[Rfam]
Description: Small nucleolar RNA SNORD10: a 137-nucleotide RNA from Mastacembelus armatus. A reference for the family is Huttenhofer et al. (2001), "RNomics: an experimental approach that identifies 201 candidates for novel, small, non-messenger RNAs in mouse", EMBO J. Lineage of the source: Eukaryota > Actinopteri > Neopterygii > Teleostei > Mastacembelus. The family's RNA type in Rfam is C/D-box small nucleolar RNA.
RNA sequence: GUAUAAUGAUGAAACCCAUGCGUGUCAGCUGACUCUGUACACCACUGGUUUGUUUUUGAUCUCACUGGCGUUCUGUUGGCUUGAGUCCUAAACACAGCAGGGAUCCAGAGGCAUGAUCAUACAUCACUACUGAGUAC
Numbered sequence: 001g002u003a004u005a006a007u008g009a010u011g012a013a014a015c016c017c018a019u020g021c022g023u024g025u026c027a028g029c030u031g032a033c034u035c036u037g038u039a040c041a042c043c044a045c046u047g048g049u050u051u052g053u054u055u056u057u058g059a060u061c062u063c064a065c066u067g068g069c070g071u072u073c074u075g076u077u078g079g080c081u082u083g084a085g086u087c088c089u090a091a092a093c094a095c096a097g098c099a100g101g102g103a104u105c106c107a108g109a110g111g112c113a114u115g116a117u118c119a120u121a122c123a124u125c126a127c128u129a130c131u132g133a134g135u136a137c
Stems, first nucleotide, its partner, number of pairs: 001137004043102001045100003049096001051094001